[Rfam]
RNA sequence: GUCAGUUACAACAAUAAAUUCCCGAUGGGAUUCAUUUUCUUAAUGAAGUUGCCUUGUAACCAAUCUACAAAAUGGGGGAAAUUACUAUG
Numbered sequence: 001g002u003c004a005g006u007u008a009c010a011a012c013a014a015u016a017a018a019u020u021c022c023c024g025a026u027g028g029g030a031u032u033c034a035u036u037u038u039c040u041u042a043a044u045g046a047a048g049u050u051g052c053c054u055u056g057u058a059a060c061c062a063a064u065c066u067a068c069a070a071a072a073u074g075g076g077g078g079a080a081a082u083u084a085c086u087a088u089g
Stems, first nucleotide, its partner, number of pairs: 019080005027054003031047005060075002
RNA: SAM-III riboswitch aptamer (SMK box)